[Rfam]
RNA sequence: GAAAGAUCGGAUUAAGUACUGUCCGAUUGGGCGUUAGAUGCCCCAAUCAAA
Numbered sequence: 001g002a003a004a005g006a007u008c009g010g011a012u013u014a015a016g017u018a019c020u021g022u023c024c025g026a027u028u029g030g031g032c033g034u035u036a037g038a039u040g041c042c043c044c045a046a047u048c049a050a051a
Base pairs, nucleotide, nucleotide: 005028006027007026008025009024010023011022012021029043030042031041032040033039034038
Shown here is a 51-nucleotide RNA sequence from Butyrivibrio sp. Su6, a member of the family "S4-Clostridia ribosomal protein leader". By type it is a cis-regulatory leader. The base pairs follow the family's consensus structure, which is taken from published work.